[Rfam]
RNA sequence: AAAUGAACGCUACCGACUUCCAGCACGACACCAGCGCCGCCCGCCAAGCCACCGGCAUGACGUCGCGUGCCCGCCGACCGGAACCCCACAUUUUCGCUGGGUGACCGGAGCUUCGUGCUGUCUG
Numbered sequence: 001a002a003a004u005g006a007a008c009g010c011u012a013c014c015g016a017c018u019u020c021c022a023g024c025a026c027g028a029c030a031c032c033a034g035c036g037c038c039g040c041c042c043g044c045c046a047a048g049c050c051a052c053c054g055g056c057a058u059g060a061c062g063u064c065g066c067g068u069g070c071c072c073g074c075c076g077a078c079c080g081g082a083a084c085c086c087c088a089c090a091u092u093u094u095c096g097c098u099g100g101g102u103g104a105c106c107g108g109a110g111c112u113u114c115g116u117g118c119u120g121u122c123u124g
Stems, first nucleotide, its partner, number of pairs: 032120005039111002041108002043079001048074002054071006080106002085101004089096001
About this RNA: This 124-nucleotide sequence from Stenotrophomonas tumulicola belongs to the Rfam family "Xanthomonadaceae sRNA Xoo5". For this family Rfam cites "Identification and functional characterization of small non-coding RNAs in Xanthomonas oryzae pathovar oryzae" (Liang et al., BMC Genomics, 2011). The family's RNA type in Rfam is small RNA. The match comes from Rfam's covariance-model search (108 bits).